[Rfam]
RNA sequence: UCGAAAGAUGCGCUUAAUCUUUUAAAGAGCGGGGGAUCCAACCGGCAUACACAUGCCUCGGGGUGAAUCCUUUACAGGUAGGGCACUCUCAAAGCCCGAAUCCGACAGCUAACCUCGUAAGCGUUAUUGAGAGGACAA
Numbered sequence: 001u002c003g004a005a006a007g008a009u010g011c012g013c014u015u016a017a018u019c020u021u022u023u024a025a026a027g028a029g030c031g032g033g034g035g036a037u038c039c040a041a042c043c044g045g046c047a048u049a050c051a052c053a054u055g056c057c058u059c060g061g062g063g064u065g066a067a068u069c070c071u072u073u074a075c076a077g078g079u080a081g082g083g084c085a086c087u088c089u090c091a092a093a094g095c096c097c098g099a100a101u102c103c104g105a106c107a108g109c110u111a112a113c114c115u116c117g118u119a120a121g122c123g124u125u126a127u128u129g130a131g132a133g134g135a136c137a138a
Stems, first nucleotide, its partner, number of pairs: 011123004018028003029118006039060001061103003069078003081097004